[Rfam]
RNA sequence: GCCGAGCUCAGUAGCGAGAGCUUGUAGCCCAUGUGGGGGCAUCAGGUGGUGUGGAUGAUUGGUGCUGAAUUUGGGCCUGGGUCCAUGUGUUGUUAACUAUGCUGGCUUGCCCGUUCCAAGUUGAGUAGUGGUUGAGGGGCUUCGGCGAAAGCCUUGGUCUCUCCGGCCCUGAAGUUGGCAGACACGGCGUGAGGCUGGCUUCACAGAGCAGCGAUCACUGCCCGCUUCCAACGGUGGAAGGAUAACAGGCCGCUGCACCAUGGGCCCGCUUCUGGCCCCACUAUUACAGACCACCAUCUUU
Dot-bracket structure: (((((((((........))))))....(((....))))))...((((((((.(..(((.(.(........(.(((((.((((((((....((.((.......(((((((.((.(((((.((((.(.(((((((((((((((..(((....)))..))))))).)))))(....)..(((((....(.(((....(((......)))....))).)..))))).))).)))))..)))))))....))))))).))))..))))))))......))))).)).).).))..)))))))))..
Numbered sequence: 001g002c003c004g005a006g007c008u009c010a011g012u013a014g015c016g017a018g019a020g021c022u023u024g025u026a027g028c029c030c031a032u033g034u035g036g037g038g039g040c041a042u043c044a045g046g047u048g049g050u051g052u053g054g055a056u057g058a059u060u061g062g063u064g065c066u067g068a069a070u071u072u073g074g075g076c077c078u079g080g081g082u083c084c085a086u087g088u089g090u091u092g093u094u095a096a097c098u099a100u101g102c103u104g105g106c107u108u109g110c111c112c113g114u115u116c117c118a119a120g121u122u123g124a125g126u127a128g129u130g131g132u133u134g135a136g137g138g139g140c141u142u143c144g145g146c147g148a149a150a151g152c153c154u155u156g157g158u159c160u161c162u163c164c165g166g167c168c169c170u171g172a173a174g175u176u177g178g179c180a181g182a183c184a185c186g187g188c189g190u191g192a193g194g195c196u197g198g199c200u201u202c203a204c205a206g207a208g209c210a211g212c213g214a215u216c217a218c219u220g221c222c223c224g225c226u227u228c229c230a231a232c233g234g235u236g237g238a239a240g241g242a243u244a245a246c247a248g249g250c251c252g253c254u255g256c257a258c259c260a261u262g263g264g265c266c267c268g269c270u271u272c273u274g275g276c277c278c279c280a281c282u283a284u285u286a287c288a289g290a291c292c293a294c295c296a297u298c299u300u301u
Stems, first nucleotide, its partner, number of pairs: 001040003004023006028037003044299008053291001056288002058285001060283001062281001071280001073278005079267008091257002094255002103252007111241002114239005120232004125228001127226003130168005135162007144153003169174001177222005186215001188213003195206003